Plastid-psbN 5UTR RNA: a 62-nucleotide RNA sequence from Leptolyngbyaceae cyanobacterium M65_K2018_010. From the family's description: Plastid psbN is a non-coding RNA (ncRNA) recognised in plastids. The organism belongs to Leptolyngbyaceae, within Bacteria.

[Rfam]
RNA sequence: UGAAAACCGCCAUCAAGGGAGUGGUACCCCAGCCGGGAGCCACCUUCCCAUACUCGGAAUUU
Numbered sequence: 001u002g003a004a005a006a007c008c009g010c011c012a013u014c015a016a017g018g019g020a021g022u023g024g025u026a027c028c029c030c031a032g033c034c035g036g037g038a039g040c041c042a043c044c045u046u047c048c049c050a051u052a053c054u055c056g057g058a059a060u061u062u
Stems, first nucleotide, its partner, number of pairs: 018046002021043005027037002